[Rfam]
RNA sequence: GGUUUUCGUUGGCGCAAAUCCAAUCUUGGGUUUUAAGAUGAGAAAAAAUUCCCCAUUGGUAGCAAAUGCUUAUCCAUUAAGCGGGGAAAAUCCUAUU
Numbered sequence: 001g002g003u004u005u006u007c008g009u010u011g012g013c014g015c016a017a018a019u020c021c022a023a024u025c026u027u028g029g030g031u032u033u034u035a036a037g038a039u040g041a042g043a044a045a046a047a048a049u050u051c052c053c054c055a056u057u058g059g060u061a062g063c064a065a066a067u068g069c070u071u072a073u074c075c076a077u078u079a080a081g082c083g084g085g086g087a088a089a090a091u092c093c094u095a096u097u
Stems, first nucleotide, its partner, number of pairs: 009023004051086004055077002058074005

The record is a 97-nucleotide sequence from Hibiscus syriacus, which matches "Plastid-rps12 3UTR RNA" in Rfam.
By type it is a cis-regulatory element.
The family's consensus secondary structure was predicted with LocARNA.
Rfam 15.1 lists 1,710 matches to the family in 1,426 species.
Plastid rpl20 is a non-coding RNA (ncRNA) recognised in plastids. It was found in the three prime untranslated region (3UTR) of rps12 gene, its 3UTR location sugest a role in transcript maduration.
Lineage of the source: Eukaryota > Embryophyta > Gunneridae > Malvaceae > Hibiscus.